[Rfam]
RNA sequence: CAACAAGGUUAGGGGUUUCUAUCGGCCUCCAGCAGCUAAGACAGCUGUAGGCCGGCGGAAACUACUUGCUCUUGUUG
Dot-bracket structure: ....((((.(((((((((((.(((((((.(((............))).))))))).))))))).)))).))))....
Numbered sequence: 001c002a003a004c005a006a007g008g009u010u011a012g013g014g015g016u017u018u019c020u021a022u023c024g025g026c027c028u029c030c031a032g033c034a035g036c037u038a039a040g041a042c043a044g045c046u047g048u049a050g051g052c053c054g055g056c057g058g059a060a061a062c063u064a065c066u067u068g069c070u071c072u073u074g075u076u077g
Stems, first nucleotide, its partner, number of pairs: 005073004010068004014063007022055007030047003